[Rfam]
RNA sequence: UGAAUUCCAUAUGAAGCACCUUGUAUAAGUUCAGGGAUACGGCCUGAGCGUUUCUACCAGCUACCGGAAAUAGCUAGUCUACAAGGGAGAGCGAUCGUUUU
Numbered sequence: 001u002g003a004a005u006u007c008c009a010u011a012u013g014a015a016g017c018a019c020c021u022u023g024u025a026u027a028a029g030u031u032c033a034g035g036g037a038u039a040c041g042g043c044c045u046g047a048g049c050g051u052u053u054c055u056a057c058c059a060g061c062u063a064c065c066g067g068a069a070a071u072a073g074c075u076a077g078u079c080u081a082c083a084a085g086g087g088a089g090a091g092c093g094a095u096c097g098u099u100u101u
Base pairs, nucleotide, nucleotide: 019086020085021084022083023082024081025080029049030048031047032046033045034044035043058077059075060074061073062072063071

This 101-nucleotide RNA from Halobacillus salinus belongs to the Rfam family "Purine riboswitch aptamer".
Lineage of the source: Bacteria > Bacilli > Caryophanales > Bacillaceae > Halobacillus.